mir-515 microRNA precursor family: an 87-nucleotide RNA sequence from Macaca mulatta.
RNA sequence: UCUCAGGCUCUAACCCUCUAGAGGGAAGCGCUUUCUGUCGUCUGAGAGAGAAGAAAGUGCAUCCUUUUAGAGGAUUACGGUUUGAGA
Numbered sequence: 001u002c003u004c005a006g007g008c009u010c011u012a013a014c015c016c017u018c019u020a021g022a023g024g025g026a027a028g029c030g031c032u033u034u035c036u037g038u039c040g041u042c043u044g045a046g047a048g049a050g051a052a053g054a055a056a057g058u059g060c061a062u063c064c065u066u067u068u069a070g071a072g073g074a075u076u077a078c079g080g081u082u083u084g085a086g087a
Stems, first nucleotide, its partner, number of pairs: 001087005007081003011077003016072003020068007028060008038052001